[Rfam]
RNA sequence: GGUUGAUGUGAUGAUAAGCUUUCACAGAAACAUAGUGUUGACUAGAAAUUCAGACUACAAUUAUCUGAUCAACU
Numbered sequence: 001g002g003u004u005g006a007u008g009u010g011a012u013g014a015u016a017a018g019c020u021u022u023c024a025c026a027g028a029a030a031c032a033u034a035g036u037g038u039u040g041a042c043u044a045g046a047a048a049u050u051c052a053g054a055c056u057a058c059a060a061u062u063a064u065c066u067g068a069u070c071a072a073c074u
Base pairs, nucleotide, nucleotide: 001074002073003072004071005070006069

The family of this 74-nucleotide RNA sequence from Dichanthelium oligosanthes is "Small nucleolar RNA Z155". Rfam links the family to the GO terms nucleolus and RNA processing.